[Rfam]
RNA sequence: AGGCAGUGAUGAGUAAUUGAGAUAGUCAUGCACCACUCUGAUGAUUUCUUCUAAUCUGUGCUGAUCAAUUUCUCAUACCCAUAUUUCUCUGAGCCU
Numbered sequence: 001a002g003g004c005a006g007u008g009a010u011g012a013g014u015a016a017u018u019g020a021g022a023u024a025g026u027c028a029u030g031c032a033c034c035a036c037u038c039u040g041a042u043g044a045u046u047u048c049u050u051c052u053a054a055u056c057u058g059u060g061c062u063g064a065u066c067a068a069u070u071u072c073u074c075a076u077a078c079c080c081a082u083a084u085u086u087c088u089c090u091g092a093g094c095c096u
Base pairs, nucleotide, nucleotide: 001096002095003094004093

Shown here is a 96-nucleotide sequence from Ziziphus jujuba, a member of the family "Small nucleolar RNA Z221/R21b". For this family Rfam cites "The high diversity of snoRNAs in plants: identification and comparative study of 120 snoRNA genes from Oryza sativa" (Chen et al., Nucleic Acids Res, 2003). Taxonomically the source falls in Ziziphus jujuba (Eukaryota, rosids, Rosales, Paliureae). Gene Ontology terms of the family: nucleolus and RNA processing. Rfam 15.1 lists 588 matches to the family in 222 species.